Shown here is a 70-nucleotide RNA from Pseudomonas sp. FeS53a, a member of the family "Repression of heat shock gene expression (ROSE) element".
The match comes from Rfam's covariance-model search (61 bits).
The pairing is the family consensus, mapped onto this sequence.
Taxonomically the source falls in Pseudomonas (Bacteria, Pseudomonadota, Gammaproteobacteria, Pseudomonadales).
On this family, see Krajewski et al., PLoS One 2013: "Short ROSE-Like RNA Thermometers Control IbpA Synthesis in Pseudomonas Species".

RNA sequence: UGCGGGAUGCCGAAGUCGGGUCCCGCACCCGUAGAACCCUUGCUGAUCUAUUCAGGAGAACACUAUGAGC
Numbered sequence: 001u002g003c004g005g006g007a008u009g010c011c012g013a014a015g016u017c018g019g020g021u022c023c024c025g026c027a028c029c030c031g032u033a034g035a036a037c038c039c040u041u042g043c044u045g046a047u048c049u050a051u052u053c054a055g056g057a058g059a060a061c062a063c064u065a066u067g068a069g070c
Stems, first nucleotide, its partner, number of pairs: 001027008010019003034061001039058003043055004